[Rfam]
RNA sequence: GUCGAGCCUAGGGCGGCCACCCGAAAAACCGGACACCUUCACCGGCUGGCUCGGCGUUCUUCGUGAAGG
Numbered sequence: 001g002u003c004g005a006g007c008c009u010a011g012g013g014c015g016g017c018c019a020c021c022c023g024a025a026a027a028a029c030c031g032g033a034c035a036c037c038u039u040c041a042c043c044g045g046c047u048g049g050c051u052c053g054g055c056g057u058u059c060u061u062c063g064u065g066a067a068g069g
Base pairs, nucleotide, nucleotide: 001055002054003053004052005051006050007049008048011022012021013020029045030044031043032042036069037068038067039066040065041064
RNA: int-alpA RNA
Organism: Burkholderia thailandensis